The family of this 69-nucleotide sequence from Micromonospora halophytica is "L31-Actinobacteria ribosomal protein leader".
RNA sequence: CCGGUUCCGGUUCACGCCCGAGUCCGUCGCGCACCAGGCGACGGGGAGAUCAGCGGCGACCCGGCGACC
Numbered sequence: 001c002c003g004g005u006u007c008c009g010g011u012u013c014a015c016g017c018c019c020g021a022g023u024c025c026g027u028c029g030c031g032c033a034c035c036a037g038g039c040g041a042c043g044g045g046g047a048g049a050u051c052a053g054c055g056g057c058g059a060c061c062c063g064g065c066g067a068c069c
Stems, first nucleotide, its partner, number of pairs: 003069003007064004015058004020051001
Rfam classes the family as a cis-regulatory leader.
The match comes from Rfam's covariance-model search (48 bits).
Pairs were carried over by alignment from the consensus structure, which is taken from published work.